[Rfam]
RNA sequence: AUGUCGGGAGGCGCCGGUGGGACGGUUGCCACGAAUAGACAUGAAACCCCCUGUCAAAUGGAGUGCCGCCGCGGCCCGGGCGAGUGGUAC
Numbered sequence: 001a002u003g004u005c006g007g008g009a010g011g012c013g014c015c016g017g018u019g020g021g022a023c024g025g026u027u028g029c030c031a032c033g034a035a036u037a038g039a040c041a042u043g044a045a046a047c048c049c050c051c052u053g054u055c056a057a058a059u060g061g062a063g064u065g066c067c068g069c070c071g072c073g074g075c076c077c078g079g080g081c082g083a084g085u086g087g088u089a090c
Stems, first nucleotide, its partner, number of pairs: 001042005010030003013026004063090005070082002

This 90-nucleotide RNA sequence belongs to the Rfam family "Rhodo-rpoB RNA". The family's RNA type in Rfam is cis-regulatory element. Rfam's curators put it in the seed alignment.